[Rfam]
RNA: FGF-2 internal ribosome entry site (IRES)
RNA sequence: AGGCAGCCCGAGCGGCUGACCCAGAGGCCGGCCCCAGAAAACCCGAGCGGGUAGGGGGCGGCGCGCUGGAAGGGAGGAGGGCCGGGGGCGUGGGGUUGGUGGGCGUUUGGGGGUGGAGAUGUAGAAGAUGUGACGCCGCGGCGCGGCCGGUGCCAGACCCUCGGACUCAGAGCCCGCAGUUGCAAGCCGAUCCCGGGCGCUGCUGUUUGGGGAGGCGGCCCUGCCGACAGCGGCGGCCGCCGAGACACUCAGUCCUAACCCGCAGCUCCUGGGCCGCCGGGCUCCCAGCGCUCCAGGGCCGGCGGAGAAGGAAGCGGCCAAACAGCACGAGGCUGGGGGCCCGCGGGCGCGGCCGCGUGCCGCGGGGCGGGAGGCUGGGGGGCCGGGGCCGGGGCCGCGCUCCGGAGCGCGUCGGAGGCCGGGGCCGGGGGUCAGCGGCGGCGGCGGCUCCCCGCGCGGCUGCAGGGGCUCGCGGACCCCGGCAGAGCCCUGGUGGGGCCAUG
Numbered sequence: 001a002g003g004c005a006g007c008c009c010g011a012g013c014g015g016c017u018g019a020c021c022c023a024g025a026g027g028c029c030g031g032c033c034c035c036a037g038a039a040a041a042c043c044c045g046a047g048c049g050g051g052u053a054g055g056g057g058g059c060g061g062c063g064c065g066c067u068g069g070a071a072g073g074g075a076g077g078a079g080g081g082c083c084g085g086g087g088g089c090g091u092g093g094g095g096u097u098g099g100u101g102g103g104c105g106u107u108u109g110g111g112g113g114u115g116g117a118g119a120u121g122u123a124g125a126a127g128a129u130g131u132g133a134c135g136c137c138g139c140g141g142c143g144c145g146g147c148c149g150g151u152g153c154c155a156g157a158c159c160c161u162c163g164g165a166c167u168c169a170g171a172g173c174c175c176g177c178a179g180u181u182g183c184a185a186g187c188c189g190a191u192c193c194c195g196g197g198c199g200c201u202g203c204u205g206u207u208u209g210g211g212g213a214g215g216c217g218g219c220c221c222u223g224c225c226g227a228c229a230g231c232g233g234c235g236g237c238c239g240c241c242g243a244g245a246c247a248c249u250c251a252g253u254c255c256u257a258a259c260c261c262g263c264a265g266c267u268c269c270u271g272g273g274c275c276g277c278c279g280g281g282c283u284c285c286c287a288g289c290g291c292u293c294c295a296g297g298g299c300c301g302g303c304g305g306a307g308a309a310g311g312a313a314g315c316g317g318c319c320a321a322a323c324a325g326c327a328c329g330a331g332g333c334u335g336g337g338g339g340c341c342c343g344c345g346g347g348c349g350c351g352g353c354c355g356c357g358u359g360c361c362g363c364g365g366g367g368c369g370g371g372a373g374g375c376u377g378g379g380g381g382g383c384c385g386g387g388g389c390c391g392g393g394g395c396c397g398c399g400c401u402c403c404g405g406a407g408c409g410c411g412u413c414g415g416a417g418g419c420c421g422g423g424g425c426c427g428g429g430g431g432u433c434a435g436c437g438g439c440g441g442c443g444g445c446g447g448c449u450c451c452c453c454g455c456g457c458g459g460c461u462g463c464a465g466g467g468g469c470u471c472g473c474g475g476a477c478c479c480c481g482g483c484a485g486a487g488c489c490c491u492g493g494u495g496g497g498g499c500c501a502u503g
Base pairs, nucleotide, nucleotide: 029385030384031383032382033381034380035379043370044369045368058363059362060361061360062359063358064357065356066355082265084263086261087260090256092254100251101250102249103248105246142189143188146177147176149174150173151172153170194239195238196237198235199234200233201232202231203230210225211224213222214221215220270329271328273326274325276303277302278301279300280299401411403409404408421491422490423489424488425487433485435483454471456469457468472480474478